ZMP/ZTP riboswitch aptamer (pfl RNA motif): a 77-nucleotide RNA sequence from Desulfosporosinus sp. Tol-M. Pairs were carried over by alignment from the consensus structure, which is taken from published work.

RNA sequence: UGAGAGUCAUAUUACUGACGGAUGUGGAUAACCACAAGGGAGUAUGAUUGAAAGAGCCGACCGUCUGGGCAAACGAC
Numbered sequence: 001u002g003a004g005a006g007u008c009a010u011a012u013u014a015c016u017g018a019c020g021g022a023u024g025u026g027g028a029u030a031a032c033c034a035c036a037a038g039g040g041a042g043u044a045u046g047a048u049u050g051a052a053a054g055a056g057c058c059g060a061c062c063g064u065c066u067g068g069g070c071a072a073a074c075g076a077c
Stems, first nucleotide, its partner, number of pairs: 005049008015039002017065005024035004056070003